[Rfam]
Nucleotides: 203
Base pairs, nucleotide, nucleotide: 007026008025009024011022012021013020014019051070052069053068054067055066056065073089074088075087076086077085078084079083121154122153123152124151125150127148128147134145135144136143137142158195159194160193161192162191164187165186166185167184168183
Number, partner (000 for none) and nucleotide at each position: 001000a002000c003000g004000c005000c006000u007026u008025c009024u010000c011022g012021g013020c014019c015000u016000u017000u018000u019014g020013g021012c022011u023000a024009a025008g026007a027000u028000u029000c030000a031000u032000g033000u034000g035000g036000g037000u038000g039000a040000g041000u042000a043000u044000c045000u046000g047000u048000u049000c050000u051070u052069u053068u054067c055066a056065g057000c058000u059000u060000a061000a062000u063000a064000u065056c066055u067054g068053a069052a070051a071000a072000c073089g074088c075087g076086a077085c078084u079083c080000a081000u082000c083079g084078a085077g086076u087075c088074g089073c090000u091000c092000g093000u094000g095000u096000a097000u098000a099000u100000u101000a102000a103000a104000c105000u106000g107000a108000u109000u110000u111000u112000a113000u114000g115000c116000c117000a118000c119000u120000g121154g122153g123152c124151u125150a126000u127148g128147g129000a130000a131000u132000a133000g134145g135144g136143a137142g138000c139000u140000u141000g142137c143136u144135c145134c146000g147128u148127c149000c150125u151124a152123g153122c154121c155000a156000a157000c158195g159194g160193u161192u162191g163000g164187c165186c166185c167184g168183g169000u170000c171000c172000u173000u174000g175000c176000a177000c178000u179000a180000c181000c182000u183168c184167c185166g186165g187164g188000a189000u190000u191162c192161g193160g194159c195158c196000c197000a198000c199000u200000c201000c202000c203000u
A member of the RNA family "U2 spliceosomal RNA" from Holothuria leucospilota, 203 nucleotides long. The organism belongs to Holothuria, within Eukaryota. By type it is a spliceosomal small nuclear RNA. From the family's description: U2 is a small nuclear RNA (snRNA) component of the spliceosome (involved in pre-mRNA splicing). It scores 128 bits against the family's covariance model.